[Rfam]
RNA sequence: GCGAGGCUGUGGGGCCCGGCAGGAGAAGCAUUCCCCGGGGCCUUAUCAAUCCUAAAGGGAGCUGUCCCUGUGCGGGCUCGUGGGCUCGCGUAUACGGCGCCCACCUACUCUGUAGGUCUCCGGGAUUCGAUACUCCACCGGCUUUGCGGCCUCGCU
Numbered sequence: 001g002c003g004a005g006g007c008u009g010u011g012g013g014g015c016c017c018g019g020c021a022g023g024a025g026a027a028g029c030a031u032u033c034c035c036c037g038g039g040g041c042c043u044u045a046u047c048a049a050u051c052c053u054a055a056a057g058g059g060a061g062c063u064g065u066c067c068c069u070g071u072g073c074g075g076g077c078u079c080g081u082g083g084g085c086u087c088g089c090g091u092a093u094a095c096g097g098c099g100c101c102c103a104c105c106u107a108c109u110c111u112g113u114a115g116g117u118c119u120c121c122g123g124g125a126u127u128c129g130a131u132a133c134u135c136c137a138c139c140g141g142c143u144u145u146g147c148g149g150c151c152u153c154g155c156u
Stems, first nucleotide, its partner, number of pairs: 002154014017140003032125004037120006057102003061098005070091007
6S / SsrS RNA: a 156-nucleotide RNA from Bauldia litoralis. It scores 77 bits against the family's covariance model. About the family: E. coli 6S RNA was the first non coding RNA to be sequenced, but its function was unknown until recently. It consists of 184 nucleotides that fold into an extended hairpin structure with a large single-stranded internal bulge. The 6S RNA specifically associates with RNA polymerase holoenzyme containing the sigma70 specificity factor. On this family, see Barrick et al., RNA 2005: "6S RNA is a widespread regulator of eubacterial RNA polymerase that resembles an open promoter". Rfam classes the family as a non-coding RNA gene.